Rfam assigns this 79-nucleotide sequence from Ornithorhynchus anatinus to the family "mir-28 microRNA precursor family". A search with the family's covariance model found it, with a score of 65 bits. Lineage of the source: Eukaryota > Opisthokonta > Vertebrata > Euteleostomi > Ornithorhynchus.
RNA sequence: CCUGCCCACAAAGAGCUCACAGUCUAGAGGGAAUGAAUAAAUGUUUCCCCCUCUAGAUUGUGAGCUCAGUGUGGGCAGG
Numbered sequence: 001c002c003u004g005c006c007c008a009c010a011a012a013g014a015g016c017u018c019a020c021a022g023u024c025u026a027g028a029g030g031g032a033a034u035g036a037a038u039a040a041a042u043g044u045u046u047c048c049c050c051c052u053c054u055a056g057a058u059u060g061u062g063a064g065c066u067c068a069g070u071g072u073g074g075g076c077a078g079g
Stems, first nucleotide, its partner, number of pairs: 001079010013067017031046005